[Rfam]
RNA sequence: CUCUUAUCAAGAGAGGUGGAGGGAUGUGCCCGAUGAAACCCGGCAACCGUCAUUUUAUGAAAUGGUGCCAAUUCACACGAAGCAAAAUUGCUUUGGGAGAUGAGGG
Numbered sequence: 001c002u003c004u005u006a007u008c009a010a011g012a013g014a015g016g017u018g019g020a021g022g023g024a025u026g027u028g029c030c031c032g033a034u035g036a037a038a039c040c041c042g043g044c045a046a047c048c049g050u051c052a053u054u055u056u057a058u059g060a061a062a063u064g065g066u067g068c069c070a071a072u073u074c075a076c077a078c079g080a081a082g083c084a085a086a087a088u089u090g091c092u093u094u095g096g097g098a099g100a101u102g103a104g105g106g
Stems, first nucleotide, its partner, number of pairs: 001106008013041001015040003021031003025077004042069004047065002050060003073098001078095006
The record is a 106-nucleotide sequence from Cytobacillus depressus, which matches "SAM riboswitch aptamer (S box leader)" in Rfam. The base pairs follow the family's consensus structure, which is taken from published work. For this family Rfam cites "YbxF and YlxQ are bacterial homologs of L7Ae and bind K-turns but not K-loops" (Baird et al., RNA, 2012). Rfam's curators write: The SAM riboswitch is found upstream of a number of genes which code for proteins involved in methionine or cysteine biosynthesis in Gram-positive bacteria.